[Rfam]
RNA sequence: CUUGGCUGUGAUGACCAACUUGCCCUAUCUGAGAGACCUCGAUUAUGAGACCUGUCCAAACCUCAAUUCUGAGCCAUG
Dot-bracket structure: (.((((..................................................................)))).)
Numbered sequence: 001c002u003u004g005g006c007u008g009u010g011a012u013g014a015c016c017a018a019c020u021u022g023c024c025c026u027a028u029c030u031g032a033g034a035g036a037c038c039u040c041g042a043u044u045a046u047g048a049g050a051c052c053u054g055u056c057c058a059a060a061c062c063u064c065a066a067u068u069c070u071g072a073g074c075c076a077u078g
Stems, first nucleotide, its partner, number of pairs: 001078001003076004
Rfam assigns this 78-nucleotide RNA sequence from Astyanax mexicanus to the family "Small nucleolar RNA SNORD103/SNORD85". NCBI's taxonomy places the organism under Eukaryota, Opisthokonta, Actinopteri, Clupeocephala, Astyanax. Gene Ontology terms of the family: RNA processing and nucleolus. For this family Rfam cites "RNomics: an experimental approach that identifies 201 candidates for novel, small, non-messenger RNAs in mouse" (Huttenhofer et al., EMBO J, 2001).